[Rfam]
The family of this 90-nucleotide RNA from Parafrankia flexibilis is "ZMP/ZTP riboswitch aptamer (pfl RNA motif)".
RNA sequence: GCAAAGGGUCGUGACUGGCGCGCUCGGGUGGAACUGACCACCAGGGAGCGACGAAGCUUGAUGGCGGUGCCGCGCGCCUGGGUACCUCCG
Number, nucleotide and partner (000 for none) at each position: 001g000002c000003a000004a000005a000006g000007g000008g052009u051010c050011g049012u048013g000014a000015c045016u044017g078018g077019c076020g075021c074022g000023c000024u000025c000026g000027g000028g041029u040030g039031g038032a000033a000034c000035u000036g000037a000038c031039c030040a029041c028042c000043a000044g016045g015046g000047a000048g012049c011050g010051a009052c008053g000054a000055a000056g000057c000058u000059u000060g000061a000062u000063g000064g000065c000066g000067g085068u084069g083070c082071c081072g000073c000074g021075c020076g019077c018078c017079u000080g000081g071082g070083u069084a068085c067086c000087u000088c000089c000090g000
The base pairs follow the family's consensus structure, which is taken from published work. It scores 48 bits against the family's covariance model. The organism belongs to Parafrankia, within Bacteria.